The family of this 132-nucleotide RNA from Electrophorus electricus is "Small nucleolar RNA SNORA77". The match comes from Rfam's covariance-model search (47 bits). ACA63 (SNORA77) is a member of the H/ACA class of snoRNAs that guide the sites of modification of uridines to pseudouridines. This snoRNA was identified by computational screening and its expression in mouse experimentally verified by Northern blot and primer extension analysis. ACA63 is proposed to guide the pseudouridylation of 18S rRNA U814. Its family is annotated with RNA processing and nucleolus in the Gene Ontology.
RNA sequence: GCAGACUCACUCUGUUUCGGGCCGUCUCCAACGUCCCCAAACUUUUUCCGUCUGCUACAGCAGCUCGCGGGGUCGUAUGCUGCUCGCUAGCCCCUCCUGCUGGCGAGGUGCUGCGUAUUCCGCUACAUCUUU
Numbered sequence: 001g002c003a004g005a006c007u008c009a010c011u012c013u014g015u016u017u018c019g020g021g022c023c024g025u026c027u028c029c030a031a032c033g034u035c036c037c038c039a040a041a042c043u044u045u046u047u048c049c050g051u052c053u054g055c056u057a058c059a060g061c062a063g064c065u066c067g068c069g070g071g072g073u074c075g076u077a078u079g080c081u082g083c084u085c086g087c088u089a090g091c092c093c094c095u096c097c098u099g100c101u102g103g104c105g106a107g108g109u110g111c112u113g114c115g116u117a118u119u120c121c122g123c124u125a126c127a128u129c130u131u132u
Base pairs, nucleotide, nucleotide: 001055002054003053004052005051006050014042015041016040017039019037020036023033024032067123068122069121070120071119072118073117074115075114076113077112078110079109083107084106085105086104087103088102089101090100091099